Plant signal recognition particle RNA: a 299-nucleotide RNA sequence from Daucus carota.
Pairs were carried over by alignment from the consensus structure, which is taken from published work.
RNA sequence: GGGCUUGGUAACGCGAGCCUGUAACUCAAGUGAGGGGUAGAUGGUUGGAUGUUGGGCCUGGUCUUGACGGGUUGGGCCUUCUAAGUGCUAAUCUGGCCUGCCCUAUUCAAGUAAGAAGUGAGUUAGGGUCCUCUAGCGAAGGCUUGGGGGCAAUGACUCCUAAAGUACAGGGCACUGCGCGAGGCUGGCUCCACAGAGCAGCGAACACCUGUCUCUUCUCACAGUGGAAGGAUCACAGGCCCUUUCUUGGGUGGGUCCAUCAAAUGCCUGAAUGACCUCUCAACAAGACAACCAUCUUU
Numbered sequence: 001g002g003g004c005u006u007g008g009u010a011a012c013g014c015g016a017g018c019c020u021g022u023a024a025c026u027c028a029a030g031u032g033a034g035g036g037g038u039a040g041a042u043g044g045u046u047g048g049a050u051g052u053u054g055g056g057c058c059u060g061g062u063c064u065u066g067a068c069g070g071g072u073u074g075g076g077c078c079u080u081c082u083a084a085g086u087g088c089u090a091a092u093c094u095g096g097c098c099u100g101c102c103c104u105a106u107u108c109a110a111g112u113a114a115g116a117a118g119u120g121a122g123u124u125a126g127g128g129u130c131c132u133c134u135a136g137c138g139a140a141g142g143c144u145u146g147g148g149g150g151c152a153a154u155g156a157c158u159c160c161u162a163a164a165g166u167a168c169a170g171g172g173c174a175c176u177g178c179g180c181g182a183g184g185c186u187g188g189c190u191c192c193a194c195a196g197a198g199c200a201g202c203g204a205a206c207a208c209c210u211g212u213c214u215c216u217u218c219u220c221a222c223a224g225u226g227g228a229a230g231g232a233u234c235a236c237a238g239g240c241c242c243u244u245u246c247u248u249g250g251g252u253g254g255g256u257c258c259a260u261c262a263a264a265u266g267c268c269u270g271a272a273u274g275a276c277c278u279c280u281c282a283a284c285a286a287g288a289c290a291a292c293c294a295u296c297u298u299u
Base pairs, nucleotide, nucleotide: 001020002019003018004017005016006015007014025034026033027032039297040296041295042294043293044292045291046290047289050286052283053282054281055279060277061276062275064274068270069269070268071267072266074258075257076256077255078254079253081251083248084247085246087245095241096240097239098238099237100236102231103230106228107227108226109225111222112221114219115218116217117216118215120159121158122157123156124155125154128151129150130149131148132147133146135144136143137142160165167212168211169210170209171208176205178203179202180201185196186195187194
The organism belongs to Daucus carota, within Eukaryota.